Shown here is a 365-nucleotide RNA sequence from an Armatimonadota bacterium, a member of the family "Bacterial RNase P class A". Rfam classes the family as a ribozyme. Rfam's curators write: Ribonuclease P (RNase P) is a ubiquitous endoribonuclease, found in archaea, bacteria and eukarya as well as chloroplasts and mitochondria. For this family Rfam cites "Ribonuclease P: unity and diversity in a tRNA processing ribozyme" (Frank and Pace, Annu Rev Biochem, 1998). Lineage of the source: Bacteria > Bacillati > Armatimonadota.

[Rfam]
RNA sequence: GGAGUGGGACGGGUGGUCGCGGAGACCAGCGGUUCGGCAGUGCCGGAACGCGAGUCUCUGAGGAAAGUCCGGGCUUCACAGGGCGCGAUGCUUGUUAACGGCAAGGCGGGGCGACCCGACGGAAAGUGCAACAGAAAGAUACCGCUCCUGCUUGCGGGAGUAAGGAUGAAAUGGUGCGGUAAGAGCGCACCGGCGGCAUGGUGACAUGUCGGCCCGGCAAACCCCAUCGGAAGCAAGGCCCAAACAGGAGGAGUUGACGCUGCCCGCCGAUCCUCCGGGUAGGGCCGCUUGAGGCGCACGGCAACGGGCGUCCCAGAGAGAUGACCACACAAAUACAGAACCCGGCUUACAGGCCCACUCCAGCC
Numbered sequence: 001g002g003a004g005u006g007g008g009a010c011g012g013g014u015g016g017u018c019g020c021g022g023a024g025a026c027c028a029g030c031g032g033u034u035c036g037g038c039a040g041u042g043c044c045g046g047a048a049c050g051c052g053a054g055u056c057u058c059u060g061a062g063g064a065a066a067g068u069c070c071g072g073g074c075u076u077c078a079c080a081g082g083g084c085g086c087g088a089u090g091c092u093u094g095u096u097a098a099c100g101g102c103a104a105g106g107c108g109g110g111g112c113g114a115c116c117c118g119a120c121g122g123a124a125a126g127u128g129c130a131a132c133a134g135a136a137a138g139a140u141a142c143c144g145c146u147c148c149u150g151c152u153u154g155c156g157g158g159a160g161u162a163a164g165g166a167u168g169a170a171a172u173g174g175u176g177c178g179g180u181a182a183g184a185g186c187g188c189a190c191c192g193g194c195g196g197c198a199u200g201g202u203g204a205c206a207u208g209u210c211g212g213c214c215c216g217g218c219a220a221a222c223c224c225c226a227u228c229g230g231a232a233g234c235a236a237g238g239c240c241c242a243a244a245c246a247g248g249a250g251g252a253g254u255u256g257a258c259g260c261u262g263c264c265c266g267c268c269g270a271u272c273c274u275c276c277g278g279g280u281a282g283g284g285c286c287g288c289u290u291g292a293g294g295c296g297c298a299c300g301g302c303a304a305c306g307g308g309c310g311u312c313c314c315a316g317a318g319a320g321a322u323g324a325c326c327a328c329a330c331a332a333a334u335a336c337a338g339a340a341c342c343c344g345g346c347u348u349a350c351a352g353g354c355c356c357a358c359u360c361c362a363g364c365c
Stems, first nucleotide, its partner, number of pairs: 001361008010352001011350001013328006020060007065348003069345005074233004081265004086229005091105005106120001107118004121224002126222002128218002142165002144161007173191006193213001194211007237286004247276006259267002293312005299306002